[Rfam]
The record is an 85-nucleotide sequence from Ipomoea nil, which matches "Small nucleolar RNA SNORD25" in Rfam. The match comes from Rfam's covariance-model search (41 bits). The family's RNA type in Rfam is C/D-box small nucleolar RNA. The family's consensus secondary structure was predicted with PFOLD. For this family Rfam cites "Identification of 10 novel snoRNA gene clusters from Arabidopsis thaliana" (Qu et al., Nucleic Acids Res, 2001).

RNA sequence: UUGAAUGUUGAUGAUAUCUACAGACCUGUAAUAAUUUGCGAGGAUGAUCACAACUCAUUAUGAACAUCUACGGGACUGAGUUCUU
Numbered sequence: 001u002u003g004a005a006u007g008u009u010g011a012u013g014a015u016a017u018c019u020a021c022a023g024a025c026c027u028g029u030a031a032u033a034a035u036u037u038g039c040g041a042g043g044a045u046g047a048u049c050a051c052a053a054c055u056c057a058u059u060a061u062g063a064a065c066a067u068c069u070a071c072g073g074g075a076c077u078g079a080g081u082u083c084u085u
Stems, first nucleotide, its partner, number of pairs: 003083004